[Rfam]
RNA sequence: CCCCCCAAUACUACCCGCAGGUAGACCUUGGUGGAGAUGUCUAGUGAGGUAGAGCGACCGAUUGGGUGGCCAGCAGUAGAAAUACUGCACCACUUUGUCAAACUCCGAACUUGCUAGAAUCGAAGAUACCAGGUGCUAGGGCGUAGGGAUAAGCUUUACGCCCGUGACGGAAACAACCGAGACUAAUGUUAAGGUCUCUAAAAUUGGCUAAGUGCGAUUUAAAGAGGUUAAUGACCGAAGACAGUGUGGAGGUUAGCUUAGAAGCAGCUAUCCUUUAAAGAGUGCGUAACAGCUCACUCACCGAGGUUAUUUGCCUCCAAGAUGGAAGAGGCUAAAGCCAGUUACCGAUACAUUAGACCACCGAAAGGUGAUGUGGUAGGGGGGCGUGCUAUAUGGAUAGAAGUUUCUUCGAGAGGAGGGAUGGACCGUAUAGUAUCGCGGAU
Numbered sequence: 001c002c003c004c005c006c007a008a009u010a011c012u013a014c015c016c017g018c019a020g021g022u023a024g025a026c027c028u029u030g031g032u033g034g035a036g037a038u039g040u041c042u043a044g045u046g047a048g049g050u051a052g053a054g055c056g057a058c059c060g061a062u063u064g065g066g067u068g069g070c071c072a073g074c075a076g077u078a079g080a081a082a083u084a085c086u087g088c089a090c091c092a093c094u095u096u097g098u099c100a101a102a103c104u105c106c107g108a109a110c111u112u113g114c115u116a117g118a119a120u121c122g123a124a125g126a127u128a129c130c131a132g133g134u135g136c137u138a139g140g141g142c143g144u145a146g147g148g149a150u151a152a153g154c155u156u157u158a159c160g161c162c163c164g165u166g167a168c169g170g171a172a173a174c175a176a177c178c179g180a181g182a183c184u185a186a187u188g189u190u191a192a193g194g195u196c197u198c199u200a201a202a203a204u205u206g207g208c209u210a211a212g213u214g215c216g217a218u219u220u221a222a223a224g225a226g227g228u229u230a231a232u233g234a235c236c237g238a239a240g241a242c243a244g245u246g247u248g249g250a251g252g253u254u255a256g257c258u259u260a261g262a263a264g265c266a267g268c269u270a271u272c273c274u275u276u277a278a279a280g281a282g283u284g285c286g287u288a289a290c291a292g293c294u295c296a297c298u299c300a301c302c303g304a305g306g307u308u309a310u311u312u313g314c315c316u317c318c319a320a321g322a323u324g325g326a327a328g329a330g331g332c333u334a335a336a337g338c339c340a341g342u343u344a345c346c347g348a349u350a351c352a353u354u355a356g357a358c359c360a361c362c363g364a365a366a367g368g369u370g371a372u373g374u375g376g377u378a379g380g381g382g383g384g385c386g387u388g389c390u391a392u393a394u395g396g397a398u399a400g401a402a403g404u405u406u407c408u409u410c411g412a413g414a415g416g417a418g419g420g421a422u423g424g425a426c427c428g429u430a431u432a433g434u435a436u437c438g439c440g441g442a443u
Stems, first nucleotide, its partner, number of pairs: 001384006011024005026135001027133006036121003040118008052106001053104002060099003064095006073088006139163009168179003183356007193346003202343007224317005230311007244301003248297001250274003255269003275279001280295001284293002357374002359370004385438001387435010403422008
RNA: Archaeal large subunit ribosomal RNA, nucleotides 880 to 1322
Organism: Ferroplasma acidarmanus